MIR2629 microRNA precursor family: a 69-nucleotide RNA sequence from Medicago truncatula.

[Rfam]
Nucleotides: 069
Stems, first nucleotide, its partner, number of pairs: 013064001015062003019058011
Number, partner (000 for none) and nucleotide at each position: 001000u002000g003000c004000c005000g006000a007000a008000g009000u010000u011000u012000u013064u014000u015062u016061c017060g018000a019058u020057a021056g022055u023054u024053a025052a026051c027050u028049g029048c030000a031000g032000c033000c034000g035000g036000u037000u038000c039000c040000a041000u042000a043000a044000u045000u046000c047000g048029g049028c050027a051026g052025u053024u054023a055022a056021c057020u058019g059000c060017c061016g062015a063000u064013g065000c066000a067000u068000u069000u

Lineage of the source: Eukaryota > Viridiplantae > eudicotyledons > rosids > Medicago.